Rfam assigns this 85-nucleotide RNA sequence from Bacillus sp. V5-8f to the family "c-di-GMP-I riboswitch aptamer". Pairs were carried over by alignment from the consensus structure, which is taken from published work. The source organism's lineage runs through Bacteria, Bacillati, Bacilli, Caryophanales and Bacillus. Clan: c-di-GMP_I riboswitch clan. Gene Ontology term of the family: cyclic-di-GMP binding.
RNA sequence: CAAGUGAAAAGGCAAACUUAUUGAAAGAUAAGGACGCAAAGCUAUGAGUCUAAGGAUUUAUUGCUAUGACAGUCGGGCUGCCAAA
Numbered sequence: 001c002a003a004g005u006g007a008a009a010a011g012g013c014a015a016a017c018u019u020a021u022u023g024a025a026a027g028a029u030a031a032g033g034a035c036g037c038a039a040a041g042c043u044a045u046g047a048g049u050c051u052a053a054g055g056a057u058u059u060a061u062u063g064c065u066a067u068g069a070c071a072g073u074c075g076g077g078c079u080g081c082c083a084a085a
Base pairs, nucleotide, nucleotide: 012037013036017032018031019030020029021028022027040079041078042077043076045075046074047073048070049069050068055064